Annotation
The family of this 193-nucleotide RNA from Acanthosepion pharaonis is "U2 spliceosomal RNA". The family has 208 seed sequences and 71,512 matches in Rfam 15.1. Taxonomically the source falls in Acanthosepion (Eukaryota, Opisthokonta, Cephalopoda, Coleoidea). On this family, see Berglund et al., RNA 2001: "Crystal structure of a model branchpoint-U2 snRNA duplex containing bulged adenosines".
RNA sequence: GUAGUUUUUACAAAUAAAUAUUAAGAUCAAAGUGUAGUAUCUGUUCUUAUCAGCUUAAUAUCUGAUACGUCCCCGAAGUGGGACUUCGAUAUUAAACUGAUUUUCGGAACAUGGCGAAGAGUCAAGGGCUUCCUCUGCCUUUGCCAUGGGUUGGCCUGGUAUUGCAGUGCCUCCAGGAGUCAGCCCAGUCUCC
Numbered sequence: 001g002u003a004g005u006u007u008u009u010a011c012a013a014a015u016a017a018a019u020a021u022u023a024a025g026a027u028c029a030a031a032g033u034g035u036a037g038u039a040u041c042u043g044u045u046c047u048u049a050u051c052a053g054c055u056u057a058a059u060a061u062c063u064g065a066u067a068c069g070u071c072c073c074c075g076a077a078g079u080g081g082g083a084c085u086u087c088g089a090u091a092u093u094a095a096a097c098u099g100a101u102u103u104u105c106g107g108a109a110c111a112u113g114g115c116g117a118a119g120a121g122u123c124a125a126g127g128g129c130u131u132c133c134u135c136u137g138c139c140u141u142u143g144c145c146a147u148g149g150g151u152u153g154g155c156c157u158g159g160u161a162u163u164g165c166a167g168u169g170c171c172u173c174c175a176g177g178a179g180u181c182a183g184c185c186c187a188g189u190c191u192c193c
Stems, first nucleotide, its partner, number of pairs: 001021003048067006069084005113145007125136004148186006155177005